[Rfam]
This 206-nucleotide sequence from Lachnospiraceae bacterium oral taxon 500 belongs to the Rfam family "Group II catalytic intron D1-D4-5". For this family Rfam cites "Group II introns: structure and catalytic versatility of large natural ribozymes" (Lehmann and Schmidt, Crit Rev Biochem Mol Biol, 2003). Rfam's curators write: Group II introns are found in rRNA, tRNA and mRNA of organelles in fungi, plants and protists, and also in mRNA in bacteria. A search with the family's covariance model found it, with a score of 180 bits. Gene Ontology term of the family: Group II intron splicing. The source organism's lineage runs through Bacteria, Bacillati, Bacillota, Lachnospiraceae and Lachnospiraceae bacterium oral taxon 500.

RNA sequence: GAGAACUGACAAUCUAAUAGGUAGAAUGACGGGGUAACGCCCUGAAAUGCCUACACUGAUACUCCGAUUGGCAAUGAAUAUUAGACUAUUUCAUUGUCAAAAGCUCGGUAAAGUCGGCAGAGAGUAGCCGUAAGACUGAUAUUAACAUCAGACACGAAAGCUGUUCAGAGGUGGACGGUGCUACCUAUAUGCCGGGUGUCGAAUAC
Numbered sequence: 001g002a003g004a005a006c007u008g009a010c011a012a013u014c015u016a017a018u019a020g021g022u023a024g025a026a027u028g029a030c031g032g033g034g035u036a037a038c039g040c041c042c043u044g045a046a047a048u049g050c051c052u053a054c055a056c057u058g059a060u061a062c063u064c065c066g067a068u069u070g071g072c073a074a075u076g077a078a079u080a081u082u083a084g085a086c087u088a089u090u091u092c093a094u095u096g097u098c099a100a101a102a103g104c105u106c107g108g109u110a111a112a113g114u115c116g117g118c119a120g121a122g123a124g125u126a127g128c129c130g131u132a133a134g135a136c137u138g139a140u141a142u143u144a145a146c147a148u149c150a151g152a153c154a155c156g157a158a159a160g161c162u163g164u165u166c167a168g169a170g171g172u173g174g175a176c177g178g179u180g181c182u183a184c185c186u187a188u189a190u191g192c193c194g195g196g197u198g199u200c201g202a203a204u205a206c
Stems, first nucleotide, its partner, number of pairs: 018053006031043004054198004064108004068100011080087001115194005124184005129156003136151005160179008